A member of the RNA family "bZIP non canonical Hac1/Xbp1 intron" from Microsporum canis, 62 nucleotides long. The family's consensus secondary structure was predicted with RNAfold.
RNA sequence: GCCUCCGAUAUGACACAACAUCCUGCAGCGGUGUUGUGUGACCUGCAGUGUCAAUCGGAGGC
Numbered sequence: 001g002c003c004u005c006c007g008a009u010a011u012g013a014c015a016c017a018a019c020a021u022c023c024u025g026c027a028g029c030g031g032u033g034u035u036g037u038g039u040g041a042c043c044u045g046c047a048g049u050g051u052c053a054a055u056c057g058g059a060g061g062c
Stems, first nucleotide, its partner, number of pairs: 001062003005058005017035006040052003
On this family, see Iracane et al., mSphere 2018: "Identification of an Exceptionally Long Intron in the HAC1 Gene of Candida parapsilosis". It scores 46 bits against the family's covariance model. The family's RNA type in Rfam is small RNA.